The record is an 87-nucleotide sequence from Mustela putorius, which matches "Small nucleolar RNA SNORD115" in Rfam. The family has 32 seed sequences and 3,387 matches in Rfam 15.1. The source organism's lineage runs through Eukaryota, Vertebrata, Eutheria, Mustelinae and Mustela putorius. The match comes from Rfam's covariance-model search (77 bits).

RNA sequence: GGGUCAAUGAUGACAACUCCAAAUGGUCUCGAAGAGCGAUGAUGAUGACCUAAAAAAUCAUGCUCAAUAGGAUUACGCUGAGGGCCC
Numbered sequence: 001g002g003g004u005c006a007a008u009g010a011u012g013a014c015a016a017c018u019c020c021a022a023a024u025g026g027u028c029u030c031g032a033a034g035a036g037c038g039a040u041g042a043u044g045a046u047g048a049c050c051u052a053a054a055a056a057a058u059c060a061u062g063c064u065c066a067a068u069a070g071g072a073u074u075a076c077g078c079u080g081a082g083g084g085c086c087c
Stems, first nucleotide, its partner, number of pairs: 001087004005080002008077002